[Rfam]
RNA: HDV ribozyme from F. prausnitzii
Organism: Paraglomus brasilianum
RNA sequence: CCCACUUGAUAUGCUGCCACCUCAACGUGGUAAGUGGGUGACAACGUUUAUAAUGAAUGGCGAAGAGCAGCAUAU
Numbered sequence: 001c002c003c004a005c006u007u008g009a010u011a012u013g014c015u016g017c018c019a020c021c022u023c024a025a026c027g028u029g030g031u032a033a034g035u036g037g038g039u040g041a042c043a044a045c046g047u048u049u050a051u052a053a054u055g056a057a058u059g060g061c062g063a064a065g066a067g068c069a070g071c072a073u074a075u
Stems, first nucleotide, its partner, number of pairs: 001038007019031003045059005